Rfam assigns this 150-nucleotide RNA sequence to the family "FMN riboswitch aptamer (RFN element)". Rfam links the family to the GO term FMN binding. It scores 120 bits against the family's covariance model. The family has 146 seed sequences and 6,230 matches in Rfam 15.1. The family's consensus secondary structure is taken from published work.
RNA sequence: ACUUAUUCUCAGGGCAGGGUGGAAUUCCCUACCGGCGGUAUGCUAGUUUAAAUUAGUAAGCCCGCGAGCGCUCUUUUAUAUUAAAAGAGGUCAGCAGAUCUGGUUAGAAUCCAGAGCCGACGGUGAAAGUCCGGAUGGGAGAGAAUAUGA
Numbered sequence: 001a002c003u004u005a006u007u008c009u010c011a012g013g014g015c016a017g018g019g020u021g022g023a024a025u026u027c028c029c030u031a032c033c034g035g036c037g038g039u040a041u042g043c044u045a046g047u048u049u050a051a052a053u054u055a056g057u058a059a060g061c062c063c064g065c066g067a068g069c070g071c072u073c074u075u076u077u078a079u080a081u082u083a084a085a086a087g088a089g090g091u092c093a094g095c096a097g098a099u100c101u102g103g104u105u106a107g108a109a110u111c112c113a114g115a116g117c118c119g120a121c122g123g124u125g126a127a128a129g130u131c132c133g134g135a136u137g138g139g140a141g142a143g144a145a146u147a148u149g150a
Base pairs, nucleotide, nucleotide: 004147005146006145007144008143009142010141017029018028019027031130032129033119034118035065036064037063038062060117061116068095069094099115100114101113102112103111121133122132123131